[Rfam]
RNA: MIR1862 microRNA precursor family
RNA sequence: UACUCCCUCCGUCCCAAAAUAAGCCAACCUCGUACUAGUACGUGACACAUCCUAGUACGAGGUUGGCUUAUUUUGGGACGGAGGGAGUAU
Number, nucleotide and partner (000 for none) at each position: 001u089002a088003c087004u086005c085006c084007c083008u082009c081010c080011g079012u078013c077014c076015c075016a074017a073018a072019a071020u070021a069022a068023g067024c066025c065026a064027a063028c062029c061030u060031c059032g058033u057034a056035c055036u000037a000038g052039u000040a050041c000042g000043u000044g000045a000046c000047a000048c000049a000050u040051c000052c038053u000054a000055g035056u034057a033058c032059g031060a030061g029062g028063u027064u026065g025066g024067c023068u022069u021070a020071u019072u018073u017074u016075g015076g014077g013078a012079c011080g010081g009082a008083g007084g006085g005086a004087g003088u002089a001090u000